[Rfam]
A member of the RNA family "U5 spliceosomal RNA" from Salix purpurea, 111 nucleotides long. Rfam describes the family as follows. U5 RNA is a component of both types of known spliceosome. The family's consensus secondary structure is taken from published work. On this family, see Zwieb, Nucleic Acids Res 1997: "The uRNA database". Rfam 15.1 lists 28,527 matches to the family in 2,489 species. The organism belongs to Salix, within Eukaryota. A search with the family's covariance model found it, with a score of 51 bits.
RNA sequence: AGCCGCGCGGUGGGCACAUAGUGAACUAUUCUUUUGCCUUUUACUAAAGAUGUGCUCGAUGCAGAUAGCAGCAUACGCUUAUUUUUGGAGGGCUCCUUCCACUUUGAGGCA
Number, nucleotide and partner (000 for none) at each position: 001a000002g000003c071004c000005g069006c068007g000008c061009g060010g000011u058012g057013g056014g055015c054016a053017c052018a051019u000020a000021g000022u000023g000024a000025a000026c000027u000028a000029u000030u050031c049032u048033u047034u046035u000036g000037c000038c000039u000040u000041u000042u000043a000044c000045u000046a034047a033048a032049g031050a030051u018052g017053u016054g015055c014056u013057c012058g011059a000060u009061g008062c000063a000064g000065a000066u000067a000068g006069c005070a000071g003072c000073a000074u000075a000076c000077g000078c000079u000080u000081a000082u000083u000084u000085u000086u000087g000088g000089a000090g000091g110092g000093c108094u107095c106096c000097u000098u000099c000100c000101a000102c000103u000104u000105u000106g095107a094108g093109g000110c091111a000